[Rfam]
RNA: Connexin-43 internal ribosome entry site (IRES)
Organism: Mus musculus
RNA sequence: AGCUUUCACCUGGUGUCAGCAAUUUUCUUUCAUUAGGGGGAAUGGGGAAGGUACGAAACAGCAGCAGGCUUUUAAACUUUAGGCAGGUGUGCCUCUUGAACUUACUGUCUUAUUUCACUUCAUCCUCCAAGGUGUGCACUCACUUGGGGUGCCCACCUUUUAAGUGCAAGAACAGCGAACAGGCAAC
Numbered sequence: 001a002g003c004u005u006u007c008a009c010c011u012g013g014u015g016u017c018a019g020c021a022a023u024u025u026u027c028u029u030u031c032a033u034u035a036g037g038g039g040g041a042a043u044g045g046g047g048a049a050g051g052u053a054c055g056a057a058a059c060a061g062c063a064g065c066a067g068g069c070u071u072u073u074a075a076a077c078u079u080u081a082g083g084c085a086g087g088u089g090u091g092c093c094u095c096u097u098g099a100a101c102u103u104a105c106u107g108u109c110u111u112a113u114u115u116c117a118c119u120u121c122a123u124c125c126u127c128c129a130a131g132g133u134g135u136g137c138a139c140u141c142a143c144u145u146g147g148g149g150u151g152c153c154c155a156c157c158u159u160u161u162a163a164g165u166g167c168a169a170g171a172a173c174a175g176c177g178a179a180c181a182g183g184c185a186a187c
Stems, first nucleotide, its partner, number of pairs: 002020003007015003029134001031132001033130002036127004040121003044114002047111001049110003066094004071089001143183004150177003153170001154166003158162001